RNA sequence: GCACUGGUUUAGCUCAGCGGUUACUUCAACUCAACUCUUUUGAAGAUUACACUUUUACCCUUUCUGGGUUUGAAACCACGGCCGCUGUUCAGUGCAUUU
Numbered sequence: 001g002c003a004c005u006g007g008u009u010u011a012g013c014u015c016a017g018c019g020g021u022u023a024c025u026u027c028a029a030c031u032c033a034a035c036u037c038u039u040u041u042g043a044a045g046a047u048u049a050c051a052c053u054u055u056u057a058c059c060c061u062u063u064c065u066g067g068g069u070u071u072g073a074a075a076c077c078a079c080g081g082c083c084g085c086u087g088u089u090c091a092g093u094g095c096a097u098u099u
Base pairs, nucleotide, nucleotide: 002094003093004092005091006090007089012083014081015080017079019077020076025074026073027072028071029070

Shown here is a 99-nucleotide RNA from Oryzias latipes, a member of the family "Vault RNA". The literature on the family includes a 2009 paper in Mol Biol Evol by Stadler et al., "Evolution of Vault RNAs". Rfam's curators write: This family of RNAs are found as part of the enigmatic vault ribonucleoprotein complex. It is annotated as a non-coding RNA gene. Rfam's curators put it in the seed alignment.